[Rfam]
RNA sequence: UGUUUUCCUUGGGGUUGGGUGAAAUUCCCUACCGGCGGUACAGCCCGCGAGCCCUUCUGGGCAGAUUCGGUGUAACUCCGAAGCCGACAGUAAAAGUCUGGAUGAGAAAGGAAAACG
Numbered sequence: 001u002g003u004u005u006u007c008c009u010u011g012g013g014g015u016u017g018g019g020u021g022a023a024a025u026u027c028c029c030u031a032c033c034g035g036c037g038g039u040a041c042a043g044c045c046c047g048c049g050a051g052c053c054c055u056u057c058u059g060g061g062c063a064g065a066u067u068c069g070g071u072g073u074a075a076c077u078c079c080g081a082a083g084c085c086g087a088c089a090g091u092a093a094a095a096g097u098c099u100g101g102a103u104g105a106g107a108a109a110g111g112a113a114a115a116c117g
Stems, first nucleotide, its partner, number of pairs: 003115008017029003031097002033086002035048004043084002051062003066082005088100003
Dot-bracket structure: ..((((((((......(((.......))).[[((((((....[[))))..(((......)))...(((((.......)))))]])).(((.....]]))).......))))))))..
The record is a 117-nucleotide RNA sequence from Heliobacterium mobile, which matches "FMN riboswitch aptamer (RFN element)" in Rfam. From the family's description: The RFN element is a highly conserved domain that is found frequently in the 5'-untranslated regions of prokaryotic mRNAs that encode for flavin mononucleotide (FMN) biosynthesis and transport proteins. Pairs were carried over by alignment from the consensus structure, which is taken from published work. It scores 118 bits against the family's covariance model. The source organism's lineage runs through Bacteria, Bacillati, Bacillota, Heliobacteriaceae and Heliobacterium.